[Rfam]
RNA sequence: AUAAGGCAAGGAUGAUGAUUCAAUUAGAUGUAUGAAAGGAAAAUUCCUUUCUGAAUUCAAAAUCUUGAGGCAAUCCAUUCAUAUACCUGACUUGCCUUCA
Numbered sequence: 001a002u003a004a005g006g007c008a009a010g011g012a013u014g015a016u017g018a019u020u021c022a023a024u025u026a027g028a029u030g031u032a033u034g035a036a037a038g039g040a041a042a043a044u045u046c047c048u049u050u051c052u053g054a055a056u057u058c059a060a061a062a063u064c065u066u067g068a069g070g071c072a073a074u075c076c077a078u079u080c081a082u083a084u085a086c087c088u089g090a091c092u093u094g095c096c097u098u099c100a
Stems, first nucleotide, its partner, number of pairs: 003098008
The family of this 100-nucleotide RNA sequence from Phaseolus vulgaris is "Small nucleolar RNA Z266". The family has 11 seed sequences and 719 matches in Rfam 15.1. Rfam links the family to the GO terms RNA processing and nucleolus. A reference for the family is Chen et al. (2003), "The high diversity of snoRNAs in plants: identification and comparative study of 120 snoRNA genes from Oryza sativa", Nucleic Acids Res. It scores 68 bits against the family's covariance model. The organism belongs to Phaseolus, within Eukaryota. By type it is a C/D-box small nucleolar RNA.